A member of the RNA family "S10-Clostridia ribosomal protein leader", 81 nucleotides long. Rfam classes the family as a cis-regulatory leader.
[Rfam]
RNA sequence: AACUGCGAUGAAGCGGGAGAUUGCGCCAAAAAGGCGGUAACUUUCGUGGAGCAUGUCCGUCGUCUGUUUGUUUGCAGACGA
Numbered sequence: 001a002a003c004u005g006c007g008a009u010g011a012a013g014c015g016g017g018a019g020a021u022u023g024c025g026c027c028a029a030a031a032a033g034g035c036g037g038u039a040a041c042u043u044u045c046g047u048g049g050a051g052c053a054u055g056u057c058c059g060u061c062g063u064c065u066g067u068u069u070g071u072u073u074g075c076a077g078a079c080g081a
Base pairs, nucleotide, nucleotide: 013047014046015045017044018043019042024036025035026034027033054080055079056078057077065076066075067074
For this family Rfam cites "Discovery of 20 novel ribosomal leader candidates in bacteria and archaea" (Eckert and Weinberg, BMC Microbiol, 2020).